RNA sequence: GGAAGUGUGGGUGAGUGGCUGAAACCAGCAGUUUGCUAAACUGCCGUACGGGUGACCGUACCACGAGUUCGAAUCUCGUCGCUUCCG
Numbered sequence: 001g002g003a004a005g006u007g008u009g010g011g012u013g014a015g016u017g018g019c020u021g022a023a024a025c026c027a028g029c030a031g032u033u034u035g036c037u038a039a040a041c042u043g044c045c046g047u048a049c050g051g052g053u054g055a056c057c058g059u060a061c062c063a064c065g066a067g068u069u070c071g072a073a074u075c076u077c078g079u080c081g082c083u084u085c086c087g
Stems, first nucleotide, its partner, number of pairs: 001086007010026003028044005063079005

A member of the RNA family "tRNA" from Porphyromonas macacae, 87 nucleotides long. The base pairs follow the family's consensus structure, which is taken from published work. Rfam classes the family as a transfer RNA.